This 75-nucleotide sequence belongs to the Rfam family "RAGATH-18 RNA". Rfam's curators put it in the seed alignment. About the family: Actinobacteria, Firmicutes, Fusobacteria, Thermotogae (1 example).
[Rfam]
RNA sequence: CUUGCGGAGAGUAAAAGAAAAUAUGAGUAGUAUUUGAAUUUAUUCAAUACAAAAACAUACUCGAUGAAGUAAGAA
Numbered sequence: 001c002u003u004g005c006g007g008a009g010a011g012u013a014a015a016a017g018a019a020a021a022u023a024u025g026a027g028u029a030g031u032a033u034u035u036g037a038a039u040u041u042a043u044u045c046a047a048u049a050c051a052a053a054a055a056c057a058u059a060c061u062c063g064a065u066g067a068a069g070u071a072a073g074a075a
Stems, first nucleotide, its partner, number of pairs: 001073005009062005022057001024055001030050003035046002